[Rfam]
RNA sequence: CUUGAGGGAGCCGAGGUGGAGCGGCCGGUCCUUCGGGCGAUCCCGUCCGUAGGUGGCCUGCAGUGCCUGUGCCUC
Dot-bracket structure: ..............(.(.....).).....(.(....((...(.(.(((....))).).)...))...).)....
Numbered sequence: 001c002u003u004g005a006g007g008g009a010g011c012c013g014a015g016g017u018g019g020a021g022c023g024g025c026c027g028g029u030c031c032u033u034c035g036g037g038c039g040a041u042c043c044c045g046u047c048c049g050u051a052g053g054u055g056g057c058c059u060g061c062a063g064u065g066c067c068u069g070u071g072c073c074u075c
Stems, first nucleotide, its partner, number of pairs: 015025001017023001031071001033069001038065002043060001045058001047056003